[Rfam]
RNA sequence: AUAAAAAAUAAAUUUUUAUUUUGUAUAAUCUCUAUAAUAUGGUUAGAGAGUUUCUACCAAGAGCCGUAAAUUCUUGAUUACAAAGAUAAUAGGUGAGUUU
Numbered sequence: 001a002u003a004a005a006a007a008a009u010a011a012a013u014u015u016u017u018a019u020u021u022u023g024u025a026u027a028a029u030c031u032c033u034a035u036a037a038u039a040u041g042g043u044u045a046g047a048g049a050g051u052u053u054c055u056a057c058c059a060a061g062a063g064c065c066g067u068a069a070a071u072u073c074u075u076g077a078u079u080a081c082a083a084a085g086a087u088a089a090u091a092g093g094u095g096a097g098u099u100u
Base pairs, nucleotide, nucleotide: 019085020084021083022082023081024080025079029049030048031047032046033045034044058076059075060074061073062072063071
The record is a 100-nucleotide RNA from Clostridium thermobutyricum, which matches "Purine riboswitch aptamer" in Rfam. The family's consensus secondary structure is taken from published work. Taxonomically the source falls in Clostridium (Bacteria, Bacillati, Bacillota, Clostridia). The match comes from Rfam's covariance-model search (79 bits).